[Rfam]
Shown here is a 76-nucleotide RNA sequence from Citrobacter koseri, a member of the family "tpke11". Rfam links the family to the GO term response to temperature stimulus. It is one of the family's seed sequences. Taxonomically the source falls in Citrobacter koseri (Bacteria, Pseudomonadota, Gammaproteobacteria, Citrobacter). On this family, see Righetti et al., Proc Natl Acad Sci U S A 2016: "Temperature-responsive in vitro RNA structurome of Yersinia pseudotuberculosis". The family's consensus secondary structure was predicted with WAR. It is annotated as a small RNA.
RNA sequence: AACGGGUAAAAUACUGGCACGGGCGAAGAGGGUUCCUCUCCGCCCGUGCACGCAUGUUAGGGGCAGAUAAAAACAA
Numbered sequence: 001a002a003c004g005g006g007u008a009a010a011a012u013a014c015u016g017g018c019a020c021g022g023g024c025g026a027a028g029a030g031g032g033u034u035c036c037u038c039u040c041c042g043c044c045c046g047u048g049c050a051c052g053c054a055u056g057u058u059a060g061g062g063g064c065a066g067a068u069a070a071a072a073a074c075a076a
Stems, first nucleotide, its partner, number of pairs: 003016003017049009027039004